A member of the RNA family "mir-241 microRNA precursor family" from Caenorhabditis elegans, 75 nucleotides long. It is one of the family's seed sequences. The base pairs follow the family's consensus structure, which was predicted with RNAalifold.
RNA sequence: AAAGUUGAGGUAGGUGCGAGAAAUGACGGCAUCCAUAUAGUAAUCGUUCAUUGUCUCUCAGCUGCUUCAUCUGUG
Numbered sequence: 001a002a003a004g005u006u007g008a009g010g011u012a013g014g015u016g017c018g019a020g021a022a023a024u025g026a027c028g029g030c031a032u033c034c035a036u037a038u039a040g041u042a043a044u045c046g047u048u049c050a051u052u053g054u055c056u057c058u059c060a061g062c063u064g065c066u067u068c069a070u071c072u073g074u075g
Base pairs, nucleotide, nucleotide: 007068008067009066010065011064012063013062015060016059018057019056020055021054022052023051024050025049026048